[Rfam]
RNA sequence: GGGUGGGGACGACCCCACCGGAGCAUCGACGGGGACGGCCCC
Numbered sequence: 001g002g003g004u005g006g007g008g009a010c011g012a013c014c015c016c017a018c019c020g021g022a023g024c025a026u027c028g029a030c031g032g033g034g035a036c037g038g039c040c041c042c
Base pairs, nucleotide, nucleotide: 002019003018004017005016006015007014008013031042032041033040034039
Guanidine-II riboswitch aptamer (mini-ykkC): a 42-nucleotide sequence from Ramlibacter cellulosilyticus. For this family Rfam cites "Identification of 22 candidate structured RNAs in bacteria using the CMfinder comparative genomics pipeline" (Weinberg et al., Nucleic Acids Res, 2007). It scores 35 bits against the family's covariance model. Rfam 15.1 lists 1,589 matches to the family in 1,229 species.